[Rfam]
RNA sequence: GGGCUCUUAAAAAAGCAAUUGUUCGUCUUAUUAUAAACAAUAAGCUCCCUUUCAAUGAAACUUUUGAAAGGGAGCUUUCUUAUUUU
Numbered sequence: 001g002g003g004c005u006c007u008u009a010a011a012a013a014a015g016c017a018a019u020u021g022u023u024c025g026u027c028u029u030a031u032u033a034u035a036a037a038c039a040a041u042a043a044g045c046u047c048c049c050u051u052u053c054a055a056u057g058a059a060a061c062u063u064u065u066g067a068a069a070g071g072g073a074g075c076u077u078u079c080u081u082a083u084u085u086u
Stems, first nucleotide, its partner, number of pairs: 044075012
PyrG leader: an 86-nucleotide RNA from Metabacillus lacus. A search with the family's covariance model found it, with a score of 69 bits. Taxonomically the source falls in Metabacillus (Bacteria, Bacilli, Caryophanales, Bacillaceae). Rfam classes the family as a cis-regulatory leader. A reference for the family is Jensen-MacAllister et al. (2007), "Regulation of pyrG expression in Bacillus subtilis: CTP-regulated antitermination and reiterative transcription with pyrG templates in vitro", Mol Microbiol.